[Rfam]
RNA sequence: AAAGGGGAUGCCGAAAACCUUAUAGAGUAGGUC
Numbered sequence: 001a002a003a004g005g006g007g008a009u010g011c012c013g014a015a016a017a018c019c020u021u022a023u024a025g026a027g028u029a030g031g032u033c
Base pairs, nucleotide, nucleotide: 002021003020004019005018010032011031012030